The family of this 61-nucleotide RNA from Pristionchus pacificus is "mir-8364 microRNA precursor family".
The base pairs follow the family's consensus structure, which was predicted with RNAalifold.
Rfam links the family to the GO terms RISC complex and miRNA-mediated post-transcriptional gene silencing.
The match comes from Rfam's covariance-model search (69 bits).
Taxonomically the source falls in Pristionchus (Eukaryota, Nematoda, Diplogasteroidea, Neodiplogasteridae).
RNA sequence: UCUUCAUUCUGCGUACUCUCUCGUCACUCUGACCGGUGAGAGAGUGCGCAGAAUGAAGAGA
Numbered sequence: 001u002c003u004u005c006a007u008u009c010u011g012c013g014u015a016c017u018c019u020c021u022c023g024u025c026a027c028u029c030u031g032a033c034c035g036g037u038g039a040g041a042g043a044g045u046g047c048g049c050a051g052a053a054u055g056a057a058g059a060g061a
Stems, first nucleotide, its partner, number of pairs: 001059007010050001012048006019041004
Dot-bracket structure: (((((((..(.((((((.((((...............)))).)))))).)..)))))))..